[Rfam]
RNA sequence: GUGUGUAGCUGGUUGACAUCGGGUCAGAUCUAUUUUUUCAAAGUAUUUGGUCCCCUUCAACCAGCUGUAGCCA
Numbered sequence: 001g002u003g004u005g006u007a008g009c010u011g012g013u014u015g016a017c018a019u020c021g022g023g024u025c026a027g028a029u030c031u032a033u034u035u036u037u038u039c040a041a042a043g044u045a046u047u048u049g050g051u052c053c054c055c056u057u058c059a060a061c062c063a064g065c066u067g068u069a070g071c072c073a
Stems, first nucleotide, its partner, number of pairs: 003071001004069002007066010021052002024050006
Dot-bracket structure: ..(((.((((((((((....((.((((((...............))))))))....)))))))))).)).)..

Shown here is a 73-nucleotide RNA sequence from Drosophila gunungcola, a member of the family "mir-133 microRNA precursor family". The match comes from Rfam's covariance-model search (56 bits). About the family: mir-133 was first experimentally characterised in mouse and homologues have since been discovered in several other species. The mature sequence is excised from the 3' arm of the hairpin. Gene Ontology terms of the family: miRNA-mediated post-transcriptional gene silencing and RISC complex. The organism belongs to elegans subgroup (in: flies), within Eukaryota.